The family of this 102-nucleotide RNA sequence from Arsenicibacter rosenii is "Bacteroidales small SRP". It is annotated as a non-coding RNA gene. The family is grouped with related families in Rfam's "SRP clan". For this family Rfam cites "A high-resolution transcriptome map identifies small RNA regulation of metabolism in the gut microbe Bacteroides thetaiotaomicron" (Ryan et al., Nat Commun, 2020). A search with the family's covariance model found it, with a score of 82 bits. Pairs were carried over by alignment from the consensus structure, which is taken from published work.
RNA sequence: UGCACCCGGCAAAUCGGUGCUACCAGCUCCUACUGAAUCCCCCAGGUCUUGACCGAAGCAAGGGUAGGUAGUUGUAGCGGUGAGACACUUGAUUUGCCUUUU
Numbered sequence: 001u002g003c004a005c006c007c008g009g010c011a012a013a014u015c016g017g018u019g020c021u022a023c024c025a026g027c028u029c030c031u032a033c034u035g036a037a038u039c040c041c042c043c044a045g046g047u048c049u050u051g052a053c054c055g056a057a058g059c060a061a062g063g064g065u066a067g068g069u070a071g072u073u074g075u076a077g078c079g080g081u082g083a084g085a086c087a088c089u090u091g092a093u094u095u096g097c098c099u100u101u102u
Stems, first nucleotide, its partner, number of pairs: 008098008017088003020084002022081002
Dot-bracket structure: .......((((((((.(((((((........................................................)).)).)))..))))))))....